[Rfam]
RNA: Plastid-clpP 5UTR RNA
RNA sequence: GACUCUGCUCAUAGGAACAAAGAGAACCAAAUCUAUUCUAUACUUGAUAAGUAUCAAUACGAGAUUGGU
Dot-bracket structure: ..((.((.((....)).)).))....................((......(((....)))......)).